[Rfam]
Source information: Rfam assigns this 52-nucleotide RNA from Lentivirus humimdef1 to the family "HIV Ribosomal frameshift signal". The family's consensus secondary structure is taken from published work. About the family: This family represents the HIV Ribosomal frameshift signal. HIV uses a system called -1 ribosomal frameshifting to produce the required ratio of Gag and Gag-Pol polyproteins. The stem-loop structure of the frameshift signal is thought to impede the ribosome and cause slippage in the 5' direction, this causes the -1 frameshift and translation then continues in the new frame. Its family is annotated with viral translational frameshifting in the Gene Ontology.
RNA sequence: UUUUUUAGGGAAGAUUUGGCCUUCCCGCGGAGGAAGGCCAGGGAAUUUCCUU
Numbered sequence: 001u002u003u004u005u006u007a008g009g010g011a012a013g014a015u016u017u018g019g020c021c022u023u024c025c026c027g028c029g030g031a032g033g034a035a036g037g038c039c040a041g042g043g044a045a046u047u048u049c050c051u052u
Base pairs, nucleotide, nucleotide: 008052009051010050012048013047014046015042016041017040018039019038020037021036022035023034024033025032